[Rfam]
RNA sequence: UAGAAUGGUAAUGAUGACCUGGUUGGACUAGAGUCUCUGAGAACUUCUCUGAGGAUUGCUGAAACCACUGAUCCACCCUCC
Numbered sequence: 001u002a003g004a005a006u007g008g009u010a011a012u013g014a015u016g017a018c019c020u021g022g023u024u025g026g027a028c029u030a031g032a033g034u035c036u037c038u039g040a041g042a043a044c045u046u047c048u049c050u051g052a053g054g055a056u057u058g059c060u061g062a063a064a065c066c067a068c069u070g071a072u073c074c075a076c077c078c079u080c081c
Stems, first nucleotide, its partner, number of pairs: 003080002006075003017072001019070001022068002025065001031057002034054004039049003
A member of the RNA family "Small nucleolar RNA ZL8" from Lipotes vexillifer, 81 nucleotides long. The base pairs follow the family's consensus structure, which was predicted with RNAfold. Rfam links the family to the GO terms nucleolus and RNA processing. On this family, see Kishore et al., Genome Biol 2013: "Insights into snoRNA biogenesis and processing from PAR-CLIP of snoRNA core proteins and small RNA sequencing". By type it is a C/D-box small nucleolar RNA.